[Rfam]
RNA sequence: UAAAAUACUGUGAAAAGAAAUAGUAAAUAAUUAGAUUUCUUAAGAGAGUCGAUGGCUGGUGUGAAUCGAUGUAAUCUAUUGUUGAAUCCAUCUUGGAGUAGCCAGCUGAAAAACUUGUAGUAGGCUGUGCCGGUGGCCGUCGAUAAAGGCAUUAAAGAGGACUAAUUAAGUUAGCCAAUUAGGGUGGCAACGCGGGAUAAUAAUCUCGUCCCUGUA
Numbered sequence: 001u002a003a004a005a006u007a008c009u010g011u012g013a014a015a016a017g018a019a020a021u022a023g024u025a026a027a028u029a030a031u032u033a034g035a036u037u038u039c040u041u042a043a044g045a046g047a048g049u050c051g052a053u054g055g056c057u058g059g060u061g062u063g064a065a066u067c068g069a070u071g072u073a074a075u076c077u078a079u080u081g082u083u084g085a086a087u088c089c090a091u092c093u094u095g096g097a098g099u100a101g102c103c104a105g106c107u108g109a110a111a112a113a114c115u116u117g118u119a120g121u122a123g124g125c126u127g128u129g130c131c132g133g134u135g136g137c138c139g140u141c142g143a144u145a146a147a148g149g150c151a152u153u154a155a156a157g158a159g160g161a162c163u164a165a166u167u168a169a170g171u172u173a174g175c176c177a178a179u180u181a182g183g184g185u186g187g188c189a190a191c192g193c194g195g196g197a198u199a200a201u202a203a204u205c206u207c208g209u210c211c212c213u214g215u216a
Stems, first nucleotide, its partner, number of pairs: 007099002015094004026083006037073001039071001048070006102129001103127005131142003160176001162174005181213004192209007